Y RNA: a 113-nucleotide RNA sequence. On this family, see Teunissen et al., Nucleic Acids Res 2000: "Conserved features of Y RNAs: a comparison of experimentally derived secondary structures". Pairs were carried over by alignment from the consensus structure, which is taken from published work. By type it is a non-coding RNA gene. The family has 104 seed sequences and 26,986 matches in Rfam 15.1. The sequence is in the family's curated seed alignment. Y RNAs are components of the Ro ribonucleoprotein particle (Ro RNP), in association with Ro60 and La proteins. The Y RNAs and Ro60 and La proteins are well conserved, but the function of the Ro RNP is not known. In humans the RNA component can be one of four small RNAs -- hY1, hY3, hY4 and hY5. These small RNAs are predicted to fold into a conserved secondary structure containing three stem structures. The largest of the four, hY1, contains an additional hairpin. This family includes a significant number of annotated pseudogenes and the model is expected to discriminate poorly between real and Y RNA related pseudogenes.
[Rfam]
RNA sequence: GGCUGGUUCGAAGGUAGUGACUUAUCUUAAUUGAUUGUUCACAGUCAGUUACAGAUAAAACUCUCUGUUCUACUCUUUCCCACCUUCUCACUACUACACUUGACUAGUCUAAA
Numbered sequence: 001g002g003c004u005g006g007u008u009c010g011a012a013g014g015u016a017g018u019g020a021c022u023u024a025u026c027u028u029a030a031u032u033g034a035u036u037g038u039u040c041a042c043a044g045u046c047a048g049u050u051a052c053a054g055a056u057a058a059a060a061c062u063c064u065c066u067g068u069u070c071u072a073c074u075c076u077u078u079c080c081c082a083c084c085u086u087c088u089c090a091c092u093a094c095u096a097c098a099c100u101u102g103a104c105u106a107g108u109c110u111a112a113a
Stems, first nucleotide, its partner, number of pairs: 001109008010101002014097002016092005044074001047071002